A member of the RNA family "LOOT RNA", 124 nucleotides long.
RNA sequence: UGCCUAACCCUCGUGAAAUUAACUUUUCGAGGUAUGGCAGAAAACAACCAUCCCUGAUACUGAACCCCUCGUUCAGCGACUCAGGGAUGGGCAUGUCCGAAAGGGCAUGUGAACCGUAAGGUUC
Numbered sequence: 001u002g003c004c005u006a007a008c009c010c011u012c013g014u015g016a017a018a019u020u021a022a023c024u025u026u027u028c029g030a031g032g033u034a035u036g037g038c039a040g041a042a043a044a045c046a047a048c049c050a051u052c053c054c055u056g057a058u059a060c061u062g063a064a065c066c067c068c069u070c071g072u073u074c075a076g077c078g079a080c081u082c083a084g085g086g087a088u089g090g091g092c093a094u095g096u097c098c099g100a101a102a103g104g105g106c107a108u109g110u111g112a113a114c115c116g117u118a119a120g121g122u123u124c
Base pairs, nucleotide, nucleotide: 001039002038003037004036009032010031011030012029013028015026016025017024048090049089050088051087052086053085054084055083056082057081060076061075062074063073064072065071092109093108094107095106096105097104098103111124112123113122114121115120

Overview:
By type it is a small RNA.